[Rfam]
RNA sequence: UGGCUGUAACCAAAUCAAGUGGCUCAUAGAAGUUAACUGGGCAGUCCUUGUGAGAUCUCUUUCUUCGACCUCUGUCAACAAACUGCUUACCGAACUUCUCACGUUC
Numbered sequence: 001u002g003g004c005u006g007u008a009a010c011c012a013a014a015u016c017a018a019g020u021g022g023c024u025c026a027u028a029g030a031a032g033u034u035a036a037c038u039g040g041g042c043a044g045u046c047c048u049u050g051u052g053a054g055a056u057c058u059c060u061u062u063c064u065u066c067g068a069c070c071u072c073u074g075u076c077a078a079c080a081a082a083c084u085g086c087u088u089a090c091c092g093a094a095c096u097u098c099u100c101a102c103g104u105u106c
Base pairs, nucleotide, nucleotide: 028099029098030097031096032095033094034093039087040086043084044083045082048078049077050076
RNA: Small nucleolar RNA snoR109